RNA sequence: GUGGUUUUUUCAUAAUAGUAUUAGAUUUAAGGUUAACAAAGUUGGUUAGGGGUUGCCGGGAGGCAAUCCUUAAUUGUUUUAUA
Numbered sequence: 001g002u003g004g005u006u007u008u009u010u011c012a013u014a015a016u017a018g019u020a021u022u023a024g025a026u027u028u029a030a031g032g033u034u035a036a037c038a039a040a041g042u043u044g045g046u047u048a049g050g051g052g053u054u055g056c057c058g059g060g061a062g063g064c065a066a067u068c069c070u071u072a073a074u075u076g077u078u079u080u081a082u083a
Stems, first nucleotide, its partner, number of pairs: 051068007
RNA: Bacteroidetes FopS (family of paralogous sRNAs)
Organism: Parabacteroides distasonis